Shown here is a 61-nucleotide RNA from bacterium HR33, a member of the family "Fluoride riboswitch aptamer (crcB RNA motif)". The base pairs follow the family's consensus structure, which is taken from published work.
[Rfam]
RNA sequence: CCCGGCGCCGGCGAUGGAGUUCGCCGUGAACCGCCGAUCGGCUGAUGACUCCUACCUGCUA
Numbered sequence: 001c002c003c004g005g006c007g008c009c010g011g012c013g014a015u016g017g018a019g020u021u022c023g024c025c026g027u028g029a030a031c032c033g034c035c036g037a038u039c040g041g042c043u044g045a046u047g048a049c050u051c052c053u054a055c056c057u058g059c060u061a
Stems, first nucleotide, its partner, number of pairs: 010025004016052006033042003